Bacterial RNase P class A: a 395-nucleotide RNA sequence from an Ignavibacteriales bacterium.
RNA sequence: UCAGUACAUCUGGCAAUCGUGGUGCCAUUGGCAUCAAGGAAAGUCCGGACUUCAAAGGGCAGAGCGUCCUGUUGUAAUGACGGGAACAGCGUUGAGCAAUCAAUGCCGAUGGAUAGUGUCACAGAAAAUAUACCGUCACGAUUUAUUCGUAUGAAUGAAUCGGGAUAAGGGUGAAAUGGCGAGGUAAGAGCUCACCAUCCCGUAGAGCAAUCUGCGGGAGCGAUAAACCCCGCUCGAAGCAAGAACGCGUAAGAGAAGAAUUUCUGCCACAGGUAGAAAGUGAAGUUGCCCGCUUCAUCCGUUUACCAUCUUCUCGGGUAGUUCGCAUCAGAGAAAUGAUUGCCUCUCCGCCUCUGGCGGAGAAACAGAAUUCGGCUUACCGAUGUACUGAAAUA
Numbered sequence: 001u002c003a004g005u006a007c008a009u010c011u012g013g014c015a016a017u018c019g020u021g022g023u024g025c026c027a028u029u030g031g032c033a034u035c036a037a038g039g040a041a042a043g044u045c046c047g048g049a050c051u052u053c054a055a056a057g058g059g060c061a062g063a064g065c066g067u068c069c070u071g072u073u074g075u076a077a078u079g080a081c082g083g084g085a086a087c088a089g090c091g092u093u094g095a096g097c098a099a100u101c102a103a104u105g106c107c108g109a110u111g112g113a114u115a116g117u118g119u120c121a122c123a124g125a126a127a128a129u130a131u132a133c134c135g136u137c138a139c140g141a142u143u144u145a146u147u148c149g150u151a152u153g154a155a156u157g158a159a160u161c162g163g164g165a166u167a168a169g170g171g172u173g174a175a176a177u178g179g180c181g182a183g184g185u186a187a188g189a190g191c192u193c194a195c196c197a198u199c200c201c202g203u204a205g206a207g208c209a210a211u212c213u214g215c216g217g218g219a220g221c222g223a224u225a226a227a228c229c230c231c232g233c234u235c236g237a238a239g240c241a242a243g244a245a246c247g248c249g250u251a252a253g254a255g256a257a258g259a260a261u262u263u264c265u266g267c268c269a270c271a272g273g274u275a276g277a278a279a280g281u282g283a284a285g286u287u288g289c290c291c292g293c294u295u296c297a298u299c300c301g302u303u304u305a306c307c308a309u310c311u312u313c314u315c316g317g318g319u320a321g322u323u324c325g326c327a328u329c330a331g332a333g334a335a336a337u338g339a340u341u342g343c344c345u346c347u348c349c350g351c352c353u354c355u356g357g358c359g360g361a362g363a364a365a366c367a368g369a370a371u372u373c374g375g376c377u378u379a380c381c382g383a384u385g386u387a388c389u390g391a392a393a394u395a
Stems, first nucleotide, its partner, number of pairs: 001391010012344007020036007041378003045375005050239004062235005067085007086110001087108001089106007111230002116228002118224003133170002135166003139162010178196002181193003198219009243324004253315006